[Rfam]
Description
The family of this 113-nucleotide sequence from Chitinophaga flava is "SAM riboswitch aptamer (S box leader)". The match comes from Rfam's covariance-model search (78 bits). The SAM riboswitch is found upstream of a number of genes which code for proteins involved in methionine or cysteine biosynthesis in Gram-positive bacteria.

RNA sequence: CGCUUAUCAAGAAAGGAGGAGGGAAAUGGCCCGAUGAUACCUUAGCAACCUUCAUUACUACCAUGAUGAAAGGUGCUGCAUCCAUCCCGGUAACACACCAGGAAAGAUAAGUC
Numbered sequence: 001c002g003c004u005u006a007u008c009a010a011g012a013a014a015g016g017a018g019g020a021g022g023g024a025a026a027u028g029g030c031c032c033g034a035u036g037a038u039a040c041c042u043u044a045g046c047a048a049c050c051u052u053c054a055u056u057a058c059u060a061c062c063a064u065g066a067u068g069a070a071a072g073g074u075g076c077u078g079c080a081u082c083c084a085u086c087c088c089g090g091u092a093a094c095a096c097a098c099c100a101g102g103a104a105a106g107a108u109a110a111g112u113c
Stems, first nucleotide, its partner, number of pairs: 002112007013043004021032003026085004044077004049073002051070006081105001086102002089099003